Source information: A member of the RNA family "Togavirus 5' plus strand cis-regulatory element" from Alphavirus sindbis, 279 nucleotides long. Rfam's curators put it in the seed alignment. Gene Ontology terms of the family: viral process and RNA biosynthetic process. The base pairs follow the family's consensus structure, which was predicted with PFOLD. Rfam describes the family as follows. This family represents a Togavirus virus 5' plus strand cis-regulatory element which is thought to be essential for both plus and minus strand RNA synthesis.Genus Alphaviruse belongs to the Togaviridae family. Alpha viruses contain secondary structural motifs in the 5' UTR that allow them to avoid detection by IFIT1.

RNA sequence: ACCGGGGUUCGGUUCCCCGACGGGGAGCCAAACAGCCGACCAAUUGCACUACCAUCACAAUGGAGAAGCCAGUAGUAAACGUAGACGUAGACCCCCAGAGUCCGUUUGUCGUGCAACUGCAAAAAGCUUCCCGCAAUUUGAGGUAGUAGCACAGCAGGUCACUCCAAAUGACCAUGCUAAUGCCAGAGCAUUUUCGCAUCUGGCCAGUAAACUAAUCGAGCUGGAGGUUCCUACCACAGCGACGAUCUUGGACAUAGGCAGCGCACCGGCUCGUAGCAU
Numbered sequence: 001a002c003c004g005g006g007g008u009u010c011g012g013u014u015c016c017c018c019g020a021c022g023g024g025g026a027g028c029c030a031a032a033c034a035g036c037c038g039a040c041c042a043a044u045u046g047c048a049c050u051a052c053c054a055u056c057a058c059a060a061u062g063g064a065g066a067a068g069c070c071a072g073u074a075g076u077a078a079a080c081g082u083a084g085a086c087g088u089a090g091a092c093c094c095c096c097a098g099a100g101u102c103c104g105u106u107u108g109u110c111g112u113g114c115a116a117c118u119g120c121a122a123a124a125a126g127c128u129u130c131c132c133g134c135a136a137u138u139u140g141a142g143g144u145a146g147u148a149g150c151a152c153a154g155c156a157g158g159u160c161a162c163u164c165c166a167a168a169u170g171a172c173c174a175u176g177c178u179a180a181u182g183c184c185a186g187a188g189c190a191u192u193u194u195c196g197c198a199u200c201u202g203g204c205c206a207g208u209a210a211a212c213u214a215a216u217c218g219a220g221c222u223g224g225a226g227g228u229u230c231c232u233a234c235c236a237c238a239g240c241g242a243c244g245a246u247c248u249u250g251g252a253c254a255u256a257g258g259c260a261g262c263g264c265a266c267c268g269g270c271u272c273g274u275a276g277c278a279u
Stems, first nucleotide, its partner, number of pairs: 005274001007272001049146005056140001061133003065130003099118003108114001153178004157173005182204006188197002215246004
Dot-bracket structure: ....(.(.........................................(((((..(....(((.(((...............................(((......(.....).))).........))))))......).)))))......(((((((((.......))))).))))...((((((((......)).))))))..........((((........................)))).........................).).....